The record is a 100-nucleotide RNA sequence from Prunus armeniaca, which matches "small nucleolar RNA snoR127" in Rfam.
[Rfam]
RNA sequence: CUGGGAUGAUGCAAAUUAGCCAAAUCAUAUGUGGAUGUGCUCCAUGGGGCAGUUUUUCCUAAGCUUGUACUGGUUCCUAUUUGAGAGGCAUUUUGCCAGU
Numbered sequence: 001c002u003g004g005g006a007u008g009a010u011g012c013a014a015a016u017u018a019g020c021c022a023a024a025u026c027a028u029a030u031g032u033g034g035a036u037g038u039g040c041u042c043c044a045u046g047g048g049g050c051a052g053u054u055u056u057u058c059c060u061a062a063g064c065u066u067g068u069a070c071u072g073g074u075u076c077c078u079a080u081u082u083g084a085g086a087g088g089c090a091u092u093u094u095g096c097c098a099g100u
Base pairs, nucleotide, nucleotide: 001099002098003097004096
Taxonomically the source falls in Prunus (Eukaryota, Streptophyta, Spermatophyta, rosids). The family's RNA type in Rfam is C/D-box small nucleolar RNA.